Shown here is a 125-nucleotide RNA sequence from Myotis lucifugus, a member of the family "Small nucleolar RNA SNORA40". The literature on the family includes a 1997 paper in J Mol Biol by Ofengand and Bakin, "Mapping to nucleotide resolution of pseudouridine residues in large subunit ribosomal RNAs from representative eukaryotes, prokaryotes, archaebacteria, mitochondria and chloroplasts". Taxonomically the source falls in Myotis (Eukaryota, Bilateria, Vertebrata, Sarcopterygii). From the family's description: The snoRNA ACA 40 belongs to the H/ACA family of snoRNAs and guides the pseudouridylation of 28S rRNA subunit at position U4565. NB This family has a high threshold value to exclude a large number of closely related sequences that do not appear to have conserved H and ACA boxes, and may be pseudogenes.
[Rfam]
RNA sequence: AGCACUUGUGUUUGUUUUUGUAAUUUGUGGACAAAAACUACAUACGGGUGCUAAAAAUAAAGCCUCUUUUGCAACCCAGAACUCAUUGCUCAGUAUGAGUUUUGAUACAUAUAAGAAGGAACAUG
Numbered sequence: 001a002g003c004a005c006u007u008g009u010g011u012u013u014g015u016u017u018u019u020g021u022a023a024u025u026u027g028u029g030g031a032c033a034a035a036a037a038c039u040a041c042a043u044a045c046g047g048g049u050g051c052u053a054a055a056a057a058u059a060a061a062g063c064c065u066c067u068u069u070u071g072c073a074a075c076c077c078a079g080a081a082c083u084c085a086u087u088g089c090u091c092a093g094u095a096u097g098a099g100u101u102u103u104g105a106u107a108c109a110u111a112u113a114a115g116a117a118g119g120a121a122c123a124u125g
Stems, first nucleotide, its partner, number of pairs: 001052009011042001014038008024029001064119002067116005077104010